[Rfam]
RNA sequence: AUGAUAAUAAGGGGAGAGACUGCAGAUAUUGCAGCGCCGAAGGAGCAAGCAACUAAAUUUGUGAAUCUCUCAGGCAAAAAGACUCUUAUUAGACG
Numbered sequence: 001a002u003g004a005u006a007a008u009a010a011g012g013g014g015a016g017a018g019a020c021u022g023c024a025g026a027u028a029u030u031g032c033a034g035c036g037c038c039g040a041a042g043g044a045g046c047a048a049g050c051a052a053c054u055a056a057a058u059u060u061g062u063g064a065a066u067c068u069c070u071c072a073g074g075c076a077a078a079a080a081g082a083c084u085c086u087u088a089u090u091a092g093a094c095g
Base pairs, nucleotide, nucleotide: 006090007089008088009087010086011085012084013083020034021033022032023031036075037074038073039071040070043069044068045067049062050061051060052059
RNA: Glycine riboswitch aptamer
Organism: Terrilactibacillus tamarindi